RNA sequence: GCGGAGGGCCGGACGGUCGCUCCGGUCGGGGAAACCUGGCCGGGGAGGAAAGUCCGGACUCCCCGAAGCAACGGUGCCGGGUAACGCCCGGGCAGGGCAACCUGACGGAAAGCGCCACAGAGAACAGACCACCGCCGGUUCGCCGGCGGCCAGGGUGAAACGGUGGGGUAAGAGCCCACCGGGGCGGUGGCAACACGGCCCGCAUGGCAAGCCCCACCGGGAGCAAUGCCGCAUAGGGACCCCGCGCGGGCUGAUCCUUUCGGGGAUAUCGCCGCAGGGCCGCUUCGGCCCGAGGGGUCCGGGUUGGCAGCAGGAGCCGGAUCGCGAGGUCCGGCCAAGAUGAAUGAUCGUCUGGGGCGGGUCCGCCCGCCCGACACAGAAUCCGGCUUACAGGCCCUCCGCGCGA
Numbered sequence: 001g002c003g004g005a006g007g008g009c010c011g012g013a014c015g016g017u018c019g020c021u022c023c024g025g026u027c028g029g030g031g032a033a034a035c036c037u038g039g040c041c042g043g044g045g046a047g048g049a050a051a052g053u054c055c056g057g058a059c060u061c062c063c064c065g066a067a068g069c070a071a072c073g074g075u076g077c078c079g080g081g082u083a084a085c086g087c088c089c090g091g092g093c094a095g096g097g098c099a100a101c102c103u104g105a106c107g108g109a110a111a112g113c114g115c116c117a118c119a120g121a122g123a124a125c126a127g128a129c130c131a132c133c134g135c136c137g138g139u140u141c142g143c144c145g146g147c148g149g150c151c152a153g154g155g156u157g158a159a160a161c162g163g164u165g166g167g168g169u170a171a172g173a174g175c176c177c178a179c180c181g182g183g184g185c186g187g188u189g190g191c192a193a194c195a196c197g198g199c200c201c202g203c204a205u206g207g208c209a210a211g212c213c214c215c216a217c218c219g220g221g222a223g224c225a226a227u228g229c230c231g232c233a234u235a236g237g238g239a240c241c242c243c244g245c246g247c248g249g250g251c252u253g254a255u256c257c258u259u260u261c262g263g264g265g266a267u268a269u270c271g272c273c274g275c276a277g278g279g280c281c282g283c284u285u286c287g288g289c290c291c292g293a294g295g296g297g298u299c300c301g302g303g304u305u306g307g308c309a310g311c312a313g314g315a316g317c318c319g320g321a322u323c324g325c326g327a328g329g330u331c332c333g334g335c336c337a338a339g340a341u342g343a344a345u346g347a348u349c350g351u352c353u354g355g356g357g358c359g360g361g362u363c364c365g366c367c368c369g370c371c372c373g374a375c376a377c378a379g380a381a382u383c384c385g386g387c388u389u390a391c392a393g394g395c396c397c398u399c400c401g402c403g404c405g406a
Stems, first nucleotide, its partner, number of pairs: 001402010011391001012352007020045009050389003054386005059223004068285001072219005077091005092106001093104004107214002112212002114208003129154002132149007162180006181203001182201004187196003227309004237300006277291005316335008
RNA: Bacterial RNase P class A